Makes More Granules Regulator RNA (mmgR): a 79-nucleotide RNA sequence from Ancylobacter novellus. NCBI's taxonomy places the organism under Bacteria, Pseudomonadati, Xanthobacteraceae, Ancylobacter, Ancylobacter novellus. The family's RNA type in Rfam is small RNA. Rfam's curators write: SuhB later renamed mmgR (makes more granules regulator) was a putative non-coding RNA found multiple times in the Agrobacterium tumefaciens genome and related alpha-proteobacteria. Other non-coding RNAs uncovered in the same analysis include: speF, ybhL, metA, and serC.Several studies inSinorhizobium meliloti showed that suhB element is indeed a non-coding RNA:firstly it was detected on Northern blot and called Sm8RNA, secondly in an RNAseq study referred to as SmelC689.The mutant phenotype's (strain lacking the small RNA) cytoplasm contains higher content of polyhydroxybutyrate (PBH)storage granules than wild type strain. The sRNA is required to limit the PBH intracellular accumulation when the nitrogen-fixing Sinorhizobium meliloti is under condition of surplus carbon in relation to nitrogen. It has been renamed to mmgR. Further study confirmed that mmgR fine-tunes the regulation of PBH storage.Northern blot confirmed the expression of the sRNA in other rhizobia species. MmgR homologues were found in most alpha-proteobacteria.

[Rfam]
RNA sequence: UGCCGCCGCCCUCCUUGGGCGUUUCCUCCCUAGACUUGGGCCGCUGCCGAAAGGUCAGCGGCCUCUUUCUUUUCAGGGU
Numbered sequence: 001u002g003c004c005g006c007c008g009c010c011c012u013c014c015u016u017g018g019g020c021g022u023u024u025c026c027u028c029c030c031u032a033g034a035c036u037u038g039g040g041c042c043g044c045u046g047c048c049g050a051a052a053g054g055u056c057a058g059c060g061g062c063c064u065c066u067u068u069c070u071u072u073u074c075a076g077g078g079u
Base pairs, nucleotide, nucleotide: 008020009019010018011017038064039063040062041061042060043059044058045057046056
Dot-bracket structure: .......((((.....)))).................(((((((((.........)))))))))...............